[Rfam]
RNA sequence: CGACCCGGUGACGCCCGACGCCAAAGACCAAAGGACCGGGGAAAGAACCGAACCCACCCCCGCCGCCCCCGGCUGUCACCCGCCGGAGUGAAUAUGCCCAACGCAACUGGCGCGGCGAGGCAGUUGUGGUGCAACGUCAGCCGCGACAACCGCAGACAUGAAUCGGCCCCCGGCGGGACUGGCAUCCCGUGCGAGGGCCUGAUCACCAAGGAAGAAGCACCUUCCCC
Numbered sequence: 001c002g003a004c005c006c007g008g009u010g011a012c013g014c015c016c017g018a019c020g021c022c023a024a025a026g027a028c029c030a031a032a033g034g035a036c037c038g039g040g041g042a043a044a045g046a047a048c049c050g051a052a053c054c055c056a057c058c059c060c061c062g063c064c065g066c067c068c069c070c071g072g073c074u075g076u077c078a079c080c081c082g083c084c085g086g087a088g089u090g091a092a093u094a095u096g097c098c099c100a101a102c103g104c105a106a107c108u109g110g111c112g113c114g115g116c117g118a119g120g121c122a123g124u125u126g127u128g129g130u131g132c133a134a135c136g137u138c139a140g141c142c143g144c145g146a147c148a149a150c151c152g153c154a155g156a157c158a159u160g161a162a163u164c165g166g167c168c169c170c171c172g173g174c175g176g177g178a179c180u181g182g183c184a185u186c187c188c189g190u191g192c193g194a195g196g197g198c199c200u201g202a203u204c205a206c207c208a209a210g211g212a213a214g215a216a217g218c219a220c221c222u223u224c225c226c227c
Base pairs, nucleotide, nucleotide: 007207008206009205010204016071017070076091077090078089079088081086107140108139109138110137165199166198167197168196169195171193172192175188176187177186178185210225211224212223213222214221

Annotation:
A member of the RNA family "Streptomyces sRNA 4677" from Streptomyces collinus, 227 nucleotides long. The literature on the family includes a 2014 paper in PLoS One by Hindra et al., "Complex intra-operonic dynamics mediated by a small RNA in Streptomyces coelicolor". The base pairs follow the family's consensus structure. Rfam describes the family as follows. Located in the intergenic region between anti-sigma factor SCO4677 gene and a putative regulatory protein gene SCO4676. scr4677 expression requires the SCO4677 activity and scr4677 sRNA itself seem to affect the levels of the SCO4676-associated transcripts. A search with the family's covariance model found it, with a score of 85 bits. Rfam classes the family as a small RNA.